[Rfam]
Record summary:
The record is a 79-nucleotide RNA from Aegilops tauschii, which matches "Small nucleolar RNA Z43" in Rfam. The literature on the family includes a 2003 paper in Nucleic Acids Res by Chen et al., "The high diversity of snoRNAs in plants: identification and comparative study of 120 snoRNA genes from Oryza sativa". The family's RNA type in Rfam is C/D-box small nucleolar RNA. NCBI's taxonomy places the organism under Eukaryota, Tracheophyta, Spermatophyta, Liliopsida, Aegilops tauschii.

RNA sequence: GGACGGUGAAGAUUUAUAUUUGGUAUCGUUCGUCGUAACUGGCAUUUGUUUGGCUUGCCGACUACCCAAAUUUGAGUCC
Numbered sequence: 001g002g003a004c005g006g007u008g009a010a011g012a013u014u015u016a017u018a019u020u021u022g023g024u025a026u027c028g029u030u031c032g033u034c035g036u037a038a039c040u041g042g043c044a045u046u047u048g049u050u051u052g053g054c055u056u057g058c059c060g061a062c063u064a065c066c067c068a069a070a071u072u073u074g075a076g077u078c079c
Stems, first nucleotide, its partner, number of pairs: 001079004044056001